RNA sequence: CUGUGGUGCAUUGUAGUUGCAUUGCAUGUGACUGAACAGAGUGCAAUGUUCCUGCAGUGCAACACAG
Numbered sequence: 001c002u003g004u005g006g007u008g009c010a011u012u013g014u015a016g017u018u019g020c021a022u023u024g025c026a027u028g029u030g031a032c033u034g035a036a037c038a039g040a041g042u043g044c045a046a047u048g049u050u051c052c053u054g055c056a057g058u059g060c061a062a063c064a065c066a067g
Stems, first nucleotide, its partner, number of pairs: 001067004006063001007061010019049001021047007